[Rfam]
RNA sequence: AAAUUAUAUAAACUCCGAAUUCAUUGUAUCUAAGGAUAAAAUCUAGGAAUAAUGAAUCUAUAGGGUAUUAUCGGAAACGAUAACGCCUCCCAUUGCGGAAAGGAGAAGACCUUGAAAAGGU
Numbered sequence: 001a002a003a004u005u006a007u008a009u010a011a012a013c014u015c016c017g018a019a020u021u022c023a024u025u026g027u028a029u030c031u032a033a034g035g036a037u038a039a040a041a042u043c044u045a046g047g048a049a050u051a052a053u054g055a056a057u058c059u060a061u062a063g064g065g066u067a068u069u070a071u072c073g074g075a076a077a078c079g080a081u082a083a084c085g086c087c088u089c090c091c092a093u094u095g096c097g098g099a100a101a102g103g104a105g106a107a108g109a110c111c112u113u114g115a116a117a118a119g120g121u
Base pairs, nucleotide, nucleotide: 004114006112013105014104015103016102019057020056021055022054023053024052025051026050029048030047034044035043036042037041063088064087065086066085068083069082070081071080072079073078089098090097
A member of the RNA family "Molybdenum/Tungsten riboswitch aptamer (Moco RNA motif)" from Alkalibaculum bacchi, 121 nucleotides long. Rfam 15.1 lists 1,248 matches to the family in 836 species.